This 79-nucleotide RNA sequence from Gopherus evgoodei belongs to the Rfam family "mir-16 microRNA precursor family".
[Rfam]
RNA sequence: CCCCACCACCAGCAGCGCAGAAGUAAGAGUGGCAAAACCAUACCAUGCCGCUUUUACUUCUGUGCUGCUGCUGGCAGGG
Numbered sequence: 001c002c003c004c005a006c007c008a009c010c011a012g013c014a015g016c017g018c019a020g021a022a023g024u025a026a027g028a029g030u031g032g033c034a035a036a037a038c039c040a041u042a043c044c045a046u047g048c049c050g051c052u053u054u055u056a057c058u059u060c061u062g063u064g065c066u067g068c069u070g071c072u073g074g075c076a077g078g079g
Base pairs, nucleotide, nucleotide: 001079002078003077006074007073011069012068013067014066015065016064017063018062020059022058023057024056025055026054027053028052029051
Dot-bracket structure: (((..((...((((((((.(.((((((((.....................)))))))))..))))))))...))..)))
Rfam 15.1 lists 4,705 matches to the family in 758 species. The family's consensus secondary structure was predicted with PFOLD. Lineage of the source: Eukaryota > Bilateria > Craniata > Gnathostomata > Gopherus. Gene Ontology terms of the family: RISC complex and miRNA-mediated post-transcriptional gene silencing. Its Rfam clan is "mir-15 clan". It scores 37 bits against the family's covariance model.